[Rfam]
RNA sequence: ACUAGAGAGGUUCGAGAUCCUCCCUCUAUAAAAAACUAAGGAGAC
Numbered sequence: 001a002c003u004a005g006a007g008a009g010g011u012u013c014g015a016g017a018u019c020c021u022c023c024c025u026c027u028a029u030a031a032a033a034a035a036c037u038a039a040g041g042a043g044a045c
Stems, first nucleotide, its partner, number of pairs: 006027005016037001